Description: A member of the RNA family "ASpks TB sRNA" from Actinacidiphila reveromycinica, 75 nucleotides long. NCBI's taxonomy places the organism under Bacteria, Bacillati, Actinomycetota, Streptomycetaceae, Actinacidiphila.

RNA sequence: CUUCAUCGAGCCGAGCCACAGCGGGCUCUCCGCGUCCCGCCCGCGGCCGUAGGCGGCCAGCAGGGCCUCGGCCUC
Dot-bracket structure: ...............((.....))......((....((...(..(.(((....))).).)...))...)).....
The family's consensus secondary structure is taken from published work.